[Rfam]
Rfam assigns this 68-nucleotide sequence from Nocardia camponoti to the family "ASdes TB sRNA". It scores 72 bits against the family's covariance model. Rfam classes the family as a small RNA. Pairs were carried over by alignment from the consensus structure, which is taken from published work. The source organism's lineage runs through Bacteria, Actinomycetota, Actinomycetes, Mycobacteriales and Nocardia. For this family Rfam cites "Identification of small RNAs in Mycobacterium tuberculosis" (Arnvig and Young, Mol Microbiol, 2009).
RNA sequence: AGUGCGACCGGAUCAACGCCACGCGUGACAACGAGGUAGUCGCGAAUCACGAUGCCGUGCCGGUUUUC
Numbered sequence: 001a002g003u004g005c006g007a008c009c010g011g012a013u014c015a016a017c018g019c020c021a022c023g024c025g026u027g028a029c030a031a032c033g034a035g036g037u038a039g040u041c042g043c044g045a046a047u048c049a050c051g052a053u054g055c056c057g058u059g060c061c062g063g064u065u066u067u068c
Stems, first nucleotide, its partner, number of pairs: 005062002008059001013028001016026003035056004040052003044048001